[Rfam]
RNA sequence: UUCCCAAACAAAGCGCCAGCACUGCGUGGGUCGGAGAGAACGCAGUGGACGAGGUGGAGGUUUAUCGAAGGAUUCGGCGGAUGCCUCCCGGCCGGUUGUAUCGAGGCCGAAAAUACAGGGACAAAACAGCGGGGUAACCUGUUGCACAAUACCUGUAUACGAUACACA
Numbered sequence: 001u002u003c004c005c006a007a008a009c010a011a012a013g014c015g016c017c018a019g020c021a022c023u024g025c026g027u028g029g030g031u032c033g034g035a036g037a038g039a040a041c042g043c044a045g046u047g048g049a050c051g052a053g054g055u056g057g058a059g060g061u062u063u064a065u066c067g068a069a070g071g072a073u074u075c076g077g078c079g080g081a082u083g084c085c086u087c088c089c090g091g092c093c094g095g096u097u098g099u100a101u102c103g104a105g106g107c108c109g110a111a112a113a114u115a116c117a118g119g120g121a122c123a124a125a126a127c128a129g130c131g132g133g134g135u136a137a138c139c140u141g142u143u144g145c146a147c148a149a150u151a152c153c154u155g156u157a158u159a160c161g162a163u164a165c166a167c168a
Base pairs, nucleotide, nucleotide: 020047021046022045023044024043025042026041027040056088057087058086059085060084065077066076067075068074089109090108091107092106093105113158114157115156116155117154118153119152127144128143129142130141131140132139133138
Rfam assigns this 168-nucleotide RNA sequence from Brevibacillus fulvus to the family "glmS glucosamine-6-phosphate activated ribozyme aptamer". Pairs were carried over by alignment from the consensus structure, which is taken from published work. Rfam classes the family as a riboswitch. Lineage of the source: Bacteria > Bacillati > Bacillota > Caryophanales > Brevibacillus.